RNA sequence: CGAGCCGGCCGGGCGGCCGCGUCGGGUCUGUGAAGGCCCGCCGAGGAAGGUCCGGGCUCCACAGGGCAGGGUGGUCGGUAACGCCGACCCGGGGUGACCCGCGGGACAGUGCCACAGAAAACAGACCGCCCCUCGCGAGAGGGGUAAGGGUGAAACGGUGGUGUAAGAGACCACCAGCGCCCACGGUGACGUGGGCGGCUAGGUAAACCCCACCCGGAGCAAGGUCAAGAAGGGACGCUCCCUGGAGCGUCCCGCGCGCGACGUUUGAGGGCUGCCCGCCCGAGCCGCGCGGGUAGACCGCUCGAGACCGGCGGCAACGCCGGUCCUAGAUGGAUGGUCGCCCCUUCACACCCGUGAAGGACAAAACCCGGCCUACAGGCCGACUCGUCCG
Number, nucleotide and partner (000 for none) at each position: 001c387002g386003a385004g384005c000006c382007g381008g380009c379010c378011g376012g342013g341014c340015g339016g338017c337018c336019g000020c043021g042022u000023c040024g039025g038026g037027u036028c035029u000030g000031u000032g000033a000034a000035g028036g027037c026038c025039c024040g023041c000042c021043g020044a000045g000046g000047a000048a374049g373050g372051u000052c371053c370054g369055g368056g367057c219058u218059c217060c216061a000062c000063a000064g277065g276066g275067c274068a000069g215070g214071g213072u212073g211074g088075u087076c086077g085078g084079u000080a000081a000082c000083g000084c078085c077086g076087a075088c074089c103090c101091g100092g099093g098094g000095u000096g000097a000098c093099c092100c091101g090102c000103g089104g210105g209106a000107c000108a000109g208110u207111g204112c203113c202114a000115c000116a000117g000118a000119a000120a000121a000122c000123a000124g000125a000126c149127c148128g145129c144130c143131c142132c141133u140134c139135g000136c000137g000138a000139g134140a133141g132142g131143g130144g129145u128146a000147a000148g127149g126150g000151u000152g000153a000154a000155a000156c000157g175158g174159u173160g172161g171162u170163g000164u000165a000166a000167g000168a000169g000170a162171c161172c160173a159174c158175c157176a000177g199178c197179g196180c195181c194182c193183a192184c191185g190186g000187u000188g000189a000190c185191g184192u183193g182194g181195g180196c179197g178198g000199c177200u000201a000202g113203g112204u111205a000206a000207a110208c109209c105210c104211c073212a072213c071214c070215c069216g060217g059218a058219g057220c000221a000222a000223g299224g298225u297226c296227a000228a000229g000230a000231a000232g000233g290234g000235a000236c287237g286238c284239u000240c000241c000242c000243u000244g000245g000246a000247g000248c000249g000250u000251c000252c000253c000254g000255c000256g000257c000258g000259c000260g000261a000262c000263g000264u000265u000266u000267g000268a000269g281270g280271g279272c278273u000274g067275c066276c065277c064278g272279c271280c270281c269282g000283a000284g238285c000286c237287g236288c000289g000290c233291g000292g000293g000294u000295a000296g226297a225298c224299c223300g000301c000302u000303c000304g000305a000306g325307a324308c323309c322310g321311g320312c319313g318314g000315c000316a000317a000318c313319g312320c311321c310322g309323g308324u307325c306326c000327u000328a000329g000330a000331u000332g000333g000334a000335u000336g018337g017338u016339c015340g014341c013342c012343c000344c000345u000346u000347c000348a000349c000350a000351c000352c000353c000354g000355u000356g000357a000358a000359g000360g000361a000362c000363a000364a000365a000366a000367c056368c055369c054370g053371g052372c050373c049374u048375a000376c011377a000378g010379g009380c008381c007382g006383a000384c004385u003386c002387g001388u000389c000390c000391g000
Rfam assigns this 391-nucleotide sequence from Streptosporangium carneum to the family "Bacterial RNase P class A". From the family's description: Ribonuclease P (RNase P) is a ubiquitous endoribonuclease, found in archaea, bacteria and eukarya as well as chloroplasts and mitochondria. The family's consensus secondary structure is taken from published work. A search with the family's covariance model found it, with a score of 294 bits.